[Rfam]
RNA sequence: GCCCGGGUGGUGAAAUCGGUAGACACGCAGGACUUAAAAUCCUGUGGCAUAAAAGCCAUGUCGGUUCAAGUCCGACCCCGGGCA
Numbered sequence: 001g002c003c004c005g006g007g008u009g010g011u012g013a014a015a016u017c018g019g020u021a022g023a024c025a026c027g028c029a030g031g032a033c034u035u036a037a038a039a040u041c042c043u044g045u046g047g048c049a050u051a052a053a054a055g056c057c058a059u060g061u062c063g064g065u066u067c068a069a070g071u072c073c074g075a076c077c078c079c080g081g082g083c084a
Base pairs, nucleotide, nucleotide: 001083002082003081004080005079006078007077010026011025012024028044029043030042031041032040060076061075062074063073064072
RNA: tRNA
Organism: Acholeplasma laidlawii